[Rfam]
RNA sequence: GGAGGUGAGAUUCGUCUGGUGACGGGCCCGGGCUUCAAACCCGGUGAGGGGCGGUUUUCGCCGUCUCUGGUGGGUUCGAUCCCCACACGCCUCC
Numbered sequence: 001g002g003a004g005g006u007g008a009g010a011u012u013c014g015u016c017u018g019g020u021g022a023c024g025g026g027c028c029c030g031g032g033c034u035u036c037a038a039a040c041c042c043g044g045u046g047a048g049g050g051g052c053g054g055u056u057u058u059c060g061c062c063g064u065c066u067c068u069g070g071u072g073g074g075u076u077c078g079a080u081c082c083c084c085a086c087a088c089g090c091c092u093c094c
Stems, first nucleotide, its partner, number of pairs: 001094007009086001011026006028044005047068007071085004
RNA: Selenocysteine transfer RNA
Organism: Fretibacterium fastidiosum